[Rfam]
RNA sequence: GUGUUUGCAGGUGCAGCAUCAUCAAGAUUCACAAACUAUAAGAGUUCCUUGGAAGGCCUUUCACUUGGGCUCCUCAAGGGCUCUUGGCGUUCGAAUCUUGAUGAUGCUGCAUCAGCAAUAAA
Numbered sequence: 001g002u003g004u005u006u007g008c009a010g011g012u013g014c015a016g017c018a019u020c021a022u023c024a025a026g027a028u029u030c031a032c033a034a035a036c037u038a039u040a041a042g043a044g045u046u047c048c049u050u051g052g053a054a055g056g057c058c059u060u061u062c063a064c065u066u067g068g069g070c071u072c073c074u075c076a077a078g079g080g081c082u083c084u085u086g087g088c089g090u091u092c093g094a095a096u097c098u099u100g101a102u103g104a105u106g107c108u109g110c111a112u113c114a115g116c117a118a119u120a121a122a
Stems, first nucleotide, its partner, number of pairs: 010113021033090001
RNA: mir-172 microRNA precursor family
Organism: Protea cynaroides